[Rfam]
RNA sequence: AGCAGUGUUACAGUACUUGUACCCAGCAGCCUUCUCCUGGUGGGAUGUUCAAAGAACUGCUGCAGCAGUGCAGCGUUUGGCAUCCUUGGUUUUUCCUCCUGCUGUGUCUGUUAAACCUGGUAUUUUUGCUGGAACAGUC
Dot-bracket structure: .(((((.........(.((((.(((.(((.......))).).)).)))....)).)))))..(((.(((.(((.....(((((....................)))))........)))..))).)))...........